Rfam assigns this 52-nucleotide sequence to the family "Streptococcus sRNA SpF59 (ldcC RNA)". On this family, see Mann et al., PLoS Pathog 2012: "Control of virulence by small RNAs in Streptococcus pneumoniae". Rfam classes the family as a small RNA.
RNA sequence: UGACCACUCCCUUCGGAGUCGAGGCCAUACGGACAGCCGGGUCAAAUGCCGA
Numbered sequence: 001u002g003a004c005c006a007c008u009c010c011c012u013u014c015g016g017a018g019u020c021g022a023g024g025c026c027a028u029a030c031g032g033a034c035a036g037c038c039g040g041g042u043c044a045a046a047u048g049c050c051g052a
Base pairs, nucleotide, nucleotide: 001044002043003042004041005040006019007018008017009016010015